Shown here is a 114-nucleotide RNA sequence from Etheostoma spectabile, a member of the family "U5 spliceosomal RNA". A search with the family's covariance model found it, with a score of 71 bits. The base pairs follow the family's consensus structure, which is taken from published work. Rfam's curators write: U5 RNA is a component of both types of known spliceosome.

RNA sequence: UCACUCUGGUUUCUCUUCACAAUGCACGAGACUUUUGCCUUUUACUAAAGACUUCCUUGGAGGGGAACGCUGAUGAGUUGAAACUAUUUUUGGUGGGCUUUGCUGUUUGGCCCA
Numbered sequence: 001u002c003a004c005u006c007u008g009g010u011u012u013c014u015c016u017u018c019a020c021a022a023u024g025c026a027c028g029a030g031a032c033u034u035u036u037g038c039c040u041u042u043u044a045c046u047a048a049a050g051a052c053u054u055c056c057u058u059g060g061a062g063g064g065g066a067a068c069g070c071u072g073a074u075g076a077g078u079u080g081a082a083a084c085u086a087u088u089u090u091u092g093g094u095g096g097g098c099u100u101u102g103c104u105g106u107u108u109g110g111c112c113c114a
Stems, first nucleotide, its partner, number of pairs: 003078004009068011028054003032050004094114006